This 155-nucleotide sequence from Paenibacillus albilobatus belongs to the Rfam family "c-di-AMP riboswitch aptamer (ydaO/yuaA leader)". Lineage of the source: Bacteria > Bacillota > Caryophanales > Paenibacillaceae > Paenibacillus.
[Rfam]
RNA sequence: AUAUUGAAUGAGCCAAAACUUUGAACGCAAAGUGCGGGGGACCGAAGUCCACCGUGAAAGUCCUUUUCACUUGGGGUGAAUCGUUAUCCGAACGAAGGGUUGUCUCCUCAAUCCGAACCCGACAGCUAACCUCGCAGGCAUUGAUGGAUUUUAAG
Numbered sequence: 001a002u003a004u005u006g007a008a009u010g011a012g013c014c015a016a017a018a019c020u021u022u023g024a025a026c027g028c029a030a031a032g033u034g035c036g037g038g039g040g041a042c043c044g045a046a047g048u049c050c051a052c053c054g055u056g057a058a059a060g061u062c063c064u065u066u067u068c069a070c071u072u073g074g075g076g077u078g079a080a081u082c083g084u085u086a087u088c089c090g091a092a093c094g095a096a097g098g099g100u101u102g103u104c105u106c107c108u109c110a111a112u113c114c115g116a117a118c119c120c121g122a123c124a125g126c127u128a129a130c131c132u133c134g135c136a137g138g139c140a141u142u143g144a145u146g147g148a149u150u151u152u153a154a155g
Stems, first nucleotide, its partner, number of pairs: 012139003018033005034135006045072004074120003082094004097114004
Gene Ontology terms of the family: cyclic-di-AMP binding and regulation of gene expression.
A search with the family's covariance model found it, with a score of 84 bits.